About this RNA: A member of the RNA family "Group II catalytic intron D1-D4-1" from Nocardiopsis metallicus, 88 nucleotides long.
RNA sequence: CGGCCGCGACCGCAAGGGAGCGGCUGACCGGGCAGAAGUCAGCAGAGGUCGUAGUACCAGCCGGGAUCGCUCGUGGGCUGGGAAGGGC
Numbered sequence: 001c002g003g004c005c006g007c008g009a010c011c012g013c014a015a016g017g018g019a020g021c022g023g024c025u026g027a028c029c030g031g032g033c034a035g036a037a038g039u040c041a042g043c044a045g046a047g048g049u050c051g052u053a054g055u056a057c058c059a060g061c062c063g064g065g066a067u068c069g070c071u072c073g074u075g076g077g078c079u080g081g082g083a084a085g086g087g088c
Stems, first nucleotide, its partner, number of pairs: 001026002004023004010017002039046002048088003057081006
The organism belongs to Nocardiopsis, within Bacteria. From the family's description: Group II introns are found in rRNA, tRNA and mRNA of organelles in fungi, plants and protists, and also in mRNA in bacteria. Its family is annotated with Group II intron splicing in the Gene Ontology. Pairs were carried over by alignment from the consensus structure.